[Rfam]
Record summary:
The family of this 155-nucleotide sequence from Paenibacillus rhizosphaerae is "c-di-AMP riboswitch aptamer (ydaO/yuaA leader)". About the family: This family represents a conserved RNA structure found upstream of the ydaO and yuaA genes in Bacillus subtilis and related genes in other bacteria. The source organism's lineage runs through Bacteria, Bacillati, Bacillota, Paenibacillaceae and Paenibacillus.

RNA sequence: AUAUUUGUUGAGCCGAAACUUUUCUAAGGUAAAGUGCGGGGGAUGUAAUUUGUGUACAUAGUACGCUUGGGGUGAAUCGCACCAAUAGGGCGUAGGGUUGUCUCCUCAAUCCGAAUCCGACAGCUAACUUCGCAGGCAUCACGACUUAAGGAGGA
Numbered sequence: 001a002u003a004u005u006u007g008u009u010g011a012g013c014c015g016a017a018a019c020u021u022u023u024c025u026a027a028g029g030u031a032a033a034g035u036g037c038g039g040g041g042g043a044u045g046u047a048a049u050u051u052g053u054g055u056a057c058a059u060a061g062u063a064c065g066c067u068u069g070g071g072g073u074g075a076a077u078c079g080c081a082c083c084a085a086u087a088g089g090g091c092g093u094a095g096g097g098u099u100g101u102c103u104c105c106u107c108a109a110u111c112c113g114a115a116u117c118c119g120a121c122a123g124c125u126a127a128c129u130u131c132g133c134a135g136g137c138a139u140c141a142c143g144a145c146u147u148a149a150g151g152a153g154g155a
Base pairs, nucleotide, nucleotide: 012137013136014135018035019034020033021032022031036133037132038131039130040129041128046069047068070118071117072116078092079091080090095112096111097110098109